[Rfam]
RNA sequence: CCGUGCUAGACGGGGAGGUAGCGGUGCCCUGUAACCCGCAAUCCGCUGCAGCGGGGUCGAAUUCCUGUCAGCGGUCAUAGAGUAUGAGGACUAGCUCCCGUUACCCAGUGUUGACGGUCGGGUCCUUCGCAAUGAAUGCUUACGAACCCGGUCAGGUCCGGAAGGAAGCAGCCGUAAGUAAGAUGUUUCAUGUGCCGAAGGGGUGCCUGAUCUGAGCUGAGUGCGGGGGAAAAGCUUGGGCUCUAUGAUCAAUGGCAGGUGCACGG
Number, nucleotide and partner (000 for none) at each position: 001c266002c265003g264004u263005g262006c261007u000008a000009g058010a057011c056012g030013g029014g028015g027016a000017g025018g000019u023020a000021g000022c000023g019024g000025u017026g000027c015028c014029c013030u012031g000032u000033a000034a000035c055036c054037c053038g052039c051040a000041a000042u000043c000044c000045g000046c000047u000048g000049c000050a000051g039052c038053g037054g036055g035056g011057u010058c009059g000060a000061a000062u000063u000064c259065c258066u257067g256068u255069c254070a253071g000072c000073g250074g249075u248076c247077a246078u000079a244080g243081a242082g241083u240084a000085u238086g237087a236088g235089g000090a000091c000092u000093a000094g000095c000096u228097c227098c226099c225100g224101u000102u000103a222104c221105c000106c000107a218108g217109u216110g000111u000112u000113g000114a000115c000116g212117g211118u210119c209120g208121g207122g206123u205124c201125c200126u199127u198128c197129g196130c192131a191132a000133u190134g189135a188136a187137u000138g000139c182140u181141u180142a179143c178144g000145a000146a000147c000148c000149c174150g173151g172152u171153c000154a000155g000156g000157u166158c165159c164160g000161g000162a000163a000164g159165g158166a157167a000168g000169c000170a000171g152172c151173c150174g149175u000176a000177a000178g143179u142180a141181a140182g139183a000184u000185g000186u000187u136188u135189c134190a133191u131192g130193u000194g000195c000196c129197g128198a127199a126200g125201g124202g000203g000204u000205g123206c122207c121208u120209g119210a118211u117212c116213u000214g000215a000216g109217c108218u107219g000220a000221g104222u103223g000224c100225g099226g098227g097228g096229g000230a000231a000232a000233a000234g000235c088236u087237u086238g085239g000240g083241c082242u081243c080244u079245a000246u077247g076248a075249u074250c073251a000252a000253u070254g069255g068256c067257a066258g065259g064260u000261g006262c005263a004264c003265g002266g001
Bacterial large signal recognition particle RNA: a 266-nucleotide RNA sequence from Insulibacter thermoxylanivorax.
The organism belongs to Insulibacter, within Bacteria.
It scores 212 bits against the family's covariance model.
The family's RNA type in Rfam is non-coding RNA gene.
About the family: The signal recognition particle (SRP) is a universally conserved ribonucleoprotein involved in the co-translational targeting of proteins to membranes.